[Rfam]
RNA sequence: CUGCCGGUGUGAGUCCGGUCCGGGUAGCUGCCAGGAGGCCCGGUAGCAGGCUGGCGGCUCGGUCUGGAAACGGGUCGGGUCGAAGCCCAGCGUCAAAAGCCCUUCAGGGGGAGCGACUGAGUGGUCCGUAGCAUCA
Numbered sequence: 001c002u003g004c005c006g007g008u009g010u011g012a013g014u015c016c017g018g019u020c021c022g023g024g025u026a027g028c029u030g031c032c033a034g035g036a037g038g039c040c041c042g043g044u045a046g047c048a049g050g051c052u053g054g055c056g057g058c059u060c061g062g063u064c065u066g067g068a069a070a071c072g073g074g075u076c077g078g079g080u081c082g083a084a085g086c087c088c089a090g091c092g093u094c095a096a097a098a099g100c101c102c103u104u105c106a107g108g109g110g111g112a113g114c115g116a117c118u119g120a121g122u123g124g125u126c127c128g129u130a131g132c133a134u135c136a
Stems, first nucleotide, its partner, number of pairs: 020043005050091005055082006064073001066071001100110003113129003
RNA: Group II catalytic intron D1-D4-4
Organism: Dactylosporangium sucinum